Rfam assigns this 140-nucleotide sequence from Mesocricetus auratus to the family "Small nucleolar RNA SNORA1". The family has 29 seed sequences and 1,282 matches in Rfam 15.1.

RNA sequence: CACCACCACCCGGCUGAACCUAAACUAAGUUUAUUAGAAAGGGCUAAGUAGAACUGACUGUGGUGGCGAAACUGAGACACAGGCCGUGCUUCCAUCACAGCAGAUAAGUUACCGUGGUGACAAUGAGACCUGUAACAUUU
Numbered sequence: 001c002a003c004c005a006c007c008a009c010c011c012g013g014c015u016g017a018a019c020c021u022a023a024a025c026u027a028a029g030u031u032u033a034u035u036a037g038a039a040a041g042g043g044c045u046a047a048g049u050a051g052a053a054c055u056g057a058c059u060g061u062g063g064u065g066g067c068g069a070a071a072c073u074g075a076g077a078c079a080c081a082g083g084c085c086g087u088g089c090u091u092c093c094a095u096c097a098c099a100g101c102a103g104a105u106a107a108g109u110u111a112c113c114g115u116g117g118u119g120a121c122a123a124u125g126a127g128a129c130c131u132g133u134a135a136c137a138u139u140u
Base pairs, nucleotide, nucleotide: 003066004065006063007062008061021050022049025048026047079133080132081131082130083129093119094118095117096116097115098114
Its family is annotated with nucleolus and RNA processing in the Gene Ontology. ACA1 is a member of the H/ACA class of snoRNA that guide the sites of modification of uridines to pseudouridines.